Shown here is a 195-nucleotide RNA sequence from Streptomyces sp. TSRI0281, a member of the family "Actinobacteria sRNA Ms_IGR-5". A search with the family's covariance model found it, with a score of 96 bits. The base pairs follow the family's consensus structure. The source organism's lineage runs through Bacteria, Bacillati, Actinomycetes, Kitasatosporales and Streptomyces. For this family Rfam cites "Identification of small RNAs in Mycobacterium smegmatis using heterologous Hfq" (Li et al., RNA, 2013). Rfam classes the family as a small RNA.

[Rfam]
RNA sequence: ACACAAGAGAGGAGGUGUUCCGGAAGUGAUUUAUCUUCGGACUCGUGAGGUGACUGCGGGCUGACGCCCGUCGUCGCGCUCUUGCAGUGCAGGCCGGUCGCCGGCCAAUCCCAAGCAGUCACCGACCCGCAGGCUCGCCGGUAAGUCCGGCCGGCCCCUCCGCAAGGAGGGACCAGAGCCUGCGGGUUUCUGCGU
Numbered sequence: 001a002c003a004c005a006a007g008a009g010a011g012g013a014g015g016u017g018u019u020c021c022g023g024a025a026g027u028g029a030u031u032u033a034u035c036u037u038c039g040g041a042c043u044c045g046u047g048a049g050g051u052g053a054c055u056g057c058g059g060g061c062u063g064a065c066g067c068c069c070g071u072c073g074u075c076g077c078g079c080u081c082u083u084g085c086a087g088u089g090c091a092g093g094c095c096g097g098u099c100g101c102c103g104g105c106c107a108a109u110c111c112c113a114a115g116c117a118g119u120c121a122c123c124g125a126c127c128c129g130c131a132g133g134c135u136c137g138c139c140g141g142u143a144a145g146u147c148c149g150g151c152c153g154g155c156c157c158c159u160c161c162g163c164a165a166g167g168a169g170g171g172a173c174c175a176g177a178g179c180c181u182g183c184g185g186g187u188u189u190c191u192g193c194g195u
Stems, first nucleotide, its partner, number of pairs: 015057003019053001059106005065100001068097003074092001124188012137155006